[Rfam]
RNA: Small nucleolar RNA SNORD42
RNA sequence: GAGCUUAAAAGGGAAAAAGAAAAACUACGGGAGAAAAUUGAAGACUUAAAAGGAACCAACGAGGCUC
Numbered sequence: 001g002a003g004c005u006u007a008a009a010a011g012g013g014a015a016a017a018a019g020a021a022a023a024a025c026u027a028c029g030g031g032a033g034a035a036a037a038u039u040g041a042a043g044a045c046u047u048a049a050a051a052g053g054a055a056c057c058a059a060c061g062a063g064g065c066u067c
Stems, first nucleotide, its partner, number of pairs: 001067005